[Rfam]
RNA sequence: AUCGUUCAUCUUUGAAAUAAGACGGAAGUAAGCGUAUGCUGAAGGAACGCACC
Numbered sequence: 001a002u003c004g005u006u007c008a009u010c011u012u013u014g015a016a017a018u019a020a021g022a023c024g025g026a027a028g029u030a031a032g033c034g035u036a037u038g039c040u041g042a043a044g045g046a047a048c049g050c051a052c053c
Stems, first nucleotide, its partner, number of pairs: 003049005009022004025050001031040003
RNA: Glutamine riboswitch aptamer (glnA leader)